RNA sequence: AUGAUAACCUUUACAAAAACACUAACUUUGUUUACAUUGCAGUAAGUGCUUUUGUUGGGUUAGUUUUG
Numbered sequence: 001a002u003g004a005u006a007a008c009c010u011u012u013a014c015a016a017a018a019a020c021a022c023u024a025a026c027u028u029u030g031u032u033u034a035c036a037u038u039g040c041a042g043u044a045a046g047u048g049c050u051u052u053u054g055u056u057g058g059g060u061u062a063g064u065u066u067u068g
Base pairs, nucleotide, nucleotide: 004064005063007061009059010058011057013055014054015053016052017051018050020048021047022046023045025043026042027041
Record summary
miR-430 microRNA precursor family: a 68-nucleotide RNA from Dissostichus mawsoni. The family's consensus secondary structure was predicted with RNAalifold. The family is grouped with related families in Rfam's "mir-290 clan".